[Rfam]
RNA sequence: AGGUUCUCACUGUGAUCUGCAGAGUAUAAAGCCUACAUCUGAGAUCAUCGUGAAAGCCAGU
Numbered sequence: 001a002g003g004u005u006c007u008c009a010c011u012g013u014g015a016u017c018u019g020c021a022g023a024g025u026a027u028a029a030a031g032c033c034u035a036c037a038u039c040u041g042a043g044a045u046c047a048u049c050g051u052g053a054a055a056g057c058c059a060g061u
Stems, first nucleotide, its partner, number of pairs: 002058004007053004013047006022038001023034002
mir-81 microRNA precursor family: a 61-nucleotide RNA sequence from Caenorhabditis brenneri. For this family Rfam cites "An abundant class of tiny RNAs with probable regulatory roles in Caenorhabditis elegans" (Lau et al., Science, 2001). Lineage of the source: Eukaryota > Metazoa > Rhabditomorpha > Rhabditidae > Caenorhabditis. Rfam links the family to the GO terms RISC complex and miRNA-mediated post-transcriptional gene silencing. Its Rfam clan is "mir-81 clan". The base pairs follow the family's consensus structure, which was predicted with RNAalifold.